A member of the RNA family "MIR394 microRNA precursor family" from Nicotiana sylvestris, 135 nucleotides long. NCBI's taxonomy places the organism under Eukaryota, Streptophytina, Gunneridae, Pentapetalae, Nicotiana. Its family is annotated with RISC complex and miRNA-mediated post-transcriptional gene silencing in the Gene Ontology.
RNA sequence: CUUACAGAGUUCUUUGGCAUUCUGUCCACCUCCCUCUUCUUUAGAAAUGAAGAUGACCAAGAAAAUGAAAAGGACAAAAAAAAAGGAGGUUUAAUUAACGUGGAGGUGGGCAUACUGCCAAUAGAGCUGUGUUGA
Number, nucleotide and partner (000 for none) at each position: 001c000002u000003u000004a000005c000006a000007g000008a000009g000010u000011u125012c000013u000014u121015u120016g119017g118018c117019a116020u000021u000022c000023u112024g111025u110026c109027c108028a107029c106030c105031u104032c103033c102034c000035u000036c000037u000038u000039c000040u000041u000042u000043a000044g000045a000046a000047a000048u000049g000050a000051a000052g000053a000054u000055g000056a000057c000058c000059a000060a000061g000062a000063a000064a000065a000066u000067g000068a000069a000070a000071a000072g000073g000074a000075c000076a000077a000078a000079a000080a000081a000082a000083a000084a000085g000086g000087a000088g000089g000090u000091u000092u000093a000094a000095u000096u000097a000098a000099c000100g000101u000102g033103g032104a031105g030106g029107u028108g027109g026110g025111c024112a023113u000114a000115c000116u019117g018118c017119c016120a015121a014122u000123a000124g000125a011126g000127c000128u000129g000130u000131g000132u000133u000134g000135a000